A member of the RNA family "pemK RNA", 64 nucleotides long.
RNA sequence: AUAAUGAGACAUCUGUAAUUCGCAGCCCGGCCAUAAAGAAGGCGGGGAGAUGAAAUUUCUAUGG
Numbered sequence: 001a002u003a004a005u006g007a008g009a010c011a012u013c014u015g016u017a018a019u020u021c022g023c024a025g026c027c028c029g030g031c032c033a034u035a036a037a038g039a040a041g042g043c044g045g046g047g048a049g050a051u052g053a054a055a056u057u058u059c060u061a062u063g064g
Stems, first nucleotide, its partner, number of pairs: 012061001013025004026047003030043003048060003